[Rfam]
RNA sequence: CUCCAAUGAUGAUCCAGCCAUGCUAAUACCGAUGCAUUAAGCAGACAGUGUGUCUGUCUUGGUGUAAGUGAGUUGAACUCAAAACUUCUCACACUGGGACCAGUGUGUGCUGAGGAGA
Numbered sequence: 001c002u003c004c005a006a007u008g009a010u011g012a013u014c015c016a017g018c019c020a021u022g023c024u025a026a027u028a029c030c031g032a033u034g035c036a037u038u039a040a041g042c043a044g045a046c047a048g049u050g051u052g053u054c055u056g057u058c059u060u061g062g063u064g065u066a067a068g069u070g071a072g073u074u075g076a077a078c079u080c081a082a083a084a085c086u087u088c089u090c091a092c093a094c095u096g097g098g099a100c101c102a103g104u105g106u107g108u109g110c111u112g113a114g115g116a117g118a
Base pairs, nucleotide, nucleotide: 001117002116003115004114042056043055044054045053046052